[Rfam]
RNA sequence: UUUGUGGGAACCUUUUGAAUCAAGUAUUGUAGUGAUUCAAAAGGUUCUCGACAGC
Numbered sequence: 001u002u003u004g005u006g007g008g009a010a011c012c013u014u015u016u017g018a019a020u021c022a023a024g025u026a027u028u029g030u031a032g033u034g035a036u037u038c039a040a041a042a043g044g045u046u047c048u049c050g051a052c053a054g055c
Stems, first nucleotide, its partner, number of pairs: 005050018
RNA: Plastid-ccsA-ndhD-2 3UTR RNA